[Rfam]
RNA: ASpks TB sRNA
Organism: Streptomyces alboflavus
RNA sequence: CUUGACCGAGCCGAGCCACAGGGGCUCACCGGUGCGGUCCCGCCCGUAGGUGGCGAGCAGGGCCUGGGCCUC
Numbered sequence: 001c002u003u004g005a006c007c008g009a010g011c012c013g014a015g016c017c018a019c020a021g022g023g024g025c026u027c028a029c030c031g032g033u034g035c036g037g038u039c040c041c042g043c044c045c046g047u048a049g050g051u052g053g054c055g056a057g058c059a060g061g062g063c064c065u066g067g068g069c070c071u072c
Base pairs, nucleotide, nucleotide: 014026015025016024017023029067030066035062040057044053045052046051